RNA sequence: AGGCUGCAAUAAACAUUCAUUGCUGUCGGUGGGUUUACAUGACAAAAACUCACUGAUCAAUGAAUGCAGACUGCGGUUCA
Numbered sequence: 001a002g003g004c005u006g007c008a009a010u011a012a013a014c015a016u017u018c019a020u021u022g023c024u025g026u027c028g029g030u031g032g033g034u035u036u037a038c039a040u041g042a043c044a045a046a047a048a049c050u051c052a053c054u055g056a057u058c059a060a061u062g063a064a065u066g067c068a069g070a071c072u073g074c075g076g077u078u079c080a
Stems, first nucleotide, its partner, number of pairs: 002079002004076005014066009025057007033049004